RNA: Pseudomonas sRNA P26
RNA sequence: ACUUCCCGGAGUACAGUCUGUCCUAACAGACUGAUGGCUGGUGACUUUUUAGUCACCAGCCU
Numbered sequence: 001a002c003u004u005c006c007c008g009g010a011g012u013a014c015a016g017u018c019u020g021u022c023c024u025a026a027c028a029g030a031c032u033g034a035u036g037g038c039u040g041g042u043g044a045c046u047u048u049u050u051a052g053u054c055a056c057c058a059g060c061c062u
Stems, first nucleotide, its partner, number of pairs: 014033005036061010